[Rfam]
RNA: Mammalian CPEB3 ribozyme
Organism: Alligator mississippiensis
RNA sequence: AGAGGUCACAAGUUUAAGGCCAUAGCAGAAGUGCUCAUGGCUUGGCCCUGCUAGAUUCCACUGAAUCUGUGAAUUAUGCU
Numbered sequence: 001a002g003a004g005g006u007c008a009c010a011a012g013u014u015u016a017a018g019g020c021c022a023u024a025g026c027a028g029a030a031g032u033g034c035u036c037a038u039g040g041c042u043u044g045g046c047c048c049u050g051c052u053a054g055a056u057u058c059c060a061c062u063g064a065a066u067c068u069g070u071g072a073a074u075u076a077u078g079c080u
Stems, first nucleotide, its partner, number of pairs: 018047004024080004029075002031043001033041001052069007